The record is a 115-nucleotide RNA sequence from Dokdonia pacifica, which matches "Bacteroidete tryptophan peptide leader RNA" in Rfam.
The base pairs follow the family's consensus structure, which is taken from published work.
It scores 49 bits against the family's covariance model.

RNA sequence: UUCCUAUAUUUACACUCUAAAUGAGAAACAAUACAGUACAUACUUGGUGGUGGAAUACGAAACAAACGUUAUCGUAAGAAGCUCCUAUGUAUUUAAAAUAUAUUAAAAGCCUGUC
Numbered sequence: 001u002u003c004c005u006a007u008a009u010u011u012a013c014a015c016u017c018u019a020a021a022u023g024a025g026a027a028a029c030a031a032u033a034c035a036g037u038a039c040a041u042a043c044u045u046g047g048u049g050g051u052g053g054a055a056u057a058c059g060a061a062a063c064a065a066a067c068g069u070u071a072u073c074g075u076a077a078g079a080a081g082c083u084c085c086u087a088u089g090u091a092u093u094u095a096a097a098a099u100a101u102a103u104u105a106a107a108a109g110c111c112u113g114u115c
Stems, first nucleotide, its partner, number of pairs: 037095002040092004045087003049083003056076003059072001061070003
Dot-bracket structure: ....................................((.((((.(((.(((....((((.(((....))).).)))....))).))).)))).))....................